Small nucleolar RNA SNORA17: a 129-nucleotide RNA from Tupaia belangeri. snoRNA ACA 17 belongs to the H/ACA family of snoRNAs and is predicted to guide pseudouridylation of the 28S rRNA at positions U4659 and U4598. It scores 65 bits against the family's covariance model. The family's consensus secondary structure was predicted with RNAalifold. The family has 53 seed sequences and 5,784 matches in Rfam 15.1.

RNA sequence: CCUGACCCUAGAGGUGUUACAGGUGUGGCUACUGUCACAGCUGGGUCAGGAAUGGACAGAGAGCAGAGAGGCUGUGUCUACACUCAUUCUUCUGACUCACUCACACUGAAUGGUUAGUAGCCUAAGAAA
Numbered sequence: 001c002c003u004g005a006c007c008c009u010a011g012a013g014g015u016g017u018u019a020c021a022g023g024u025g026u027g028g029c030u031a032c033u034g035u036c037a038c039a040g041c042u043g044g045g046u047c048a049g050g051a052a053u054g055g056a057c058a059g060a061g062a063g064c065a066g067a068g069a070g071g072c073u074g075u076g077u078c079u080a081c082a083c084u085c086a087u088u089c090u091u092c093u094g095a096c097u098c099a100c101u102c103a104c105a106c107u108g109a110a111u112g113g114u115u116a117g118u119a120g121c122c123u124a125a126g127a128a129a
Stems, first nucleotide, its partner, number of pairs: 002059003006055001009051001013047003020043003024039006069123007081112002084109003088105001090103001